[Rfam]
Rfam assigns this 102-nucleotide RNA sequence from Paramaledivibacter caminithermalis to the family "Purine riboswitch aptamer".
RNA sequence: AAAAACUUCAUAAAGUUCGCCCAUAUAAUUAUGGUAAUAUGGACCAUUAGUUUCUACCAGGCUACCGUAAAUAGUCUGACUAUGGGUGUUUAGUUAUCUAUU
Numbered sequence: 001a002a003a004a005a006c007u008u009c010a011u012a013a014a015g016u017u018c019g020c021c022c023a024u025a026u027a028a029u030u031a032u033g034g035u036a037a038u039a040u041g042g043a044c045c046a047u048u049a050g051u052u053u054c055u056a057c058c059a060g061g062c063u064a065c066c067g068u069a070a071a072u073a074g075u076c077u078g079a080c081u082a083u084g085g086g087u088g089u090u091u092a093g094u095u096a097u098c099u100a101u102u
Stems, first nucleotide, its partner, number of pairs: 018088008029049001031047005058078007

Notes: Pairs were carried over by alignment from the consensus structure, which is taken from published work. Taxonomically the source falls in Paramaledivibacter caminithermalis (Bacteria, Clostridia, Peptostreptococcales, Paramaledivibacter). The match comes from Rfam's covariance-model search (93 bits).